[Rfam]
RNA sequence: UCAUCGAGGCUAAAGGGAGAAGAGAGAGAGUACAGCCUUACCAAGUACACACUUCAGAUCUCAUCAGUCUCUUAUGCAGUUAUGUGUGAGUGUGAUGAAGGCUGUACCCUCUCUCUUCUUCUCUUAGCCUUUUGAUGC
Dot-bracket structure: ....((..(..((.((((((((((((((.(((((((((............................................................))))))))).)))))))))))))).))..)....))....
Rfam assigns this 138-nucleotide sequence from Panicum miliaceum to the family "MIR529 microRNA precursor family". The family has 3 seed sequences and 55 matches in Rfam 15.1. The base pairs follow the family's consensus structure, which was predicted with WAR. A search with the family's covariance model found it, with a score of 96 bits. For this family Rfam cites "MicroRNAs in loblolly pine (Pinus taeda L.) and their association with fusiform rust gall development" (Lu et al., Plant J, 2007). Rfam links the family to the GO terms miRNA-mediated post-transcriptional gene silencing and RISC complex. Taxonomically the source falls in Panicum sect. Panicum (Eukaryota, Liliopsida, Poales, Panicodae).